RNA sequence: CACGGCAAAAGUUUUUUUGCAUAUCCUGCACAGUUUCAGUUCUCGCAGAGUACGCAAAAAAACAAUUUUGACGUGAG
Numbered sequence: 001c002a003c004g005g006c007a008a009a010a011g012u013u014u015u016u017u018u019g020c021a022u023a024u025c026c027u028g029c030a031c032a033g034u035u036u037c038a039g040u041u042c043u044c045g046c047a048g049a050g051u052a053c054g055c056a057a058a059a060a061a062a063c064a065a066u067u068u069u070g071a072c073g074u075g076a077g
Base pairs, nucleotide, nucleotide: 001075002074003073004072006070007069008068009067010066011063012062013061014060015059016058017057018056019055020054022052023051024050026048027047028046029045032043033042
Shown here is a 77-nucleotide sequence from Bombyx mori, a member of the family "mir-2778 microRNA precursor family". The sequence is in the family's curated seed alignment. NCBI's taxonomy places the organism under Eukaryota, Altocrustacea, Endopterygota, Obtectomera, Bombyx. On this family, see Cai et al., Funct Integr Genomics 2010: "Novel microRNAs in silkworm (Bombyx mori)".